[Rfam]
RNA sequence: CCCGGGAUGCGGCGCAUUUGGCCGGUGUGGUACAGAGAAGCCGGCUUGUUUACCUGCCCAUCCGGGG
Numbered sequence: 001c002c003c004g005g006g007a008u009g010c011g012g013c014g015c016a017u018u019u020g021g022c023c024g025g026u027g028u029g030g031u032a033c034a035g036a037g038a039a040g041c042c043g044g045c046u047u048g049u050u051u052a053c054c055u056g057c058c059c060a061u062c063c064g065g066g067g
Stems, first nucleotide, its partner, number of pairs: 001066006009058001012057002016049002020046007027033002